[Rfam]
RNA sequence: GAGUGUCAAAGGUAAACCAUGUGAAAGCAUGGGACACAAAGCCUCGGGCCUAAGGUGAGGAGGAUGUGGGGGUCAUCUUCGCGAUGGCAGCCGGGCUGCCGAC
Numbered sequence: 001g002a003g004u005g006u007c008a009a010a011g012g013u014a015a016a017c018c019a020u021g022u023g024a025a026a027g028c029a030u031g032g033g034a035c036a037c038a039a040a041g042c043c044u045c046g047g048g049c050c051u052a053a054g055g056u057g058a059g060g061a062g063g064a065u066g067u068g069g070g071g072g073u074c075a076u077c078u079u080c081g082c083g084a085u086g087g088c089a090g091c092c093g094g095g096c097u098g099c100c101g102a103c
Base pairs, nucleotide, nucleotide: 012037013036017032018031019030020029021028022027040097041096042095043094045093046092047091048088049087050086055082056081057080058079059078060077061076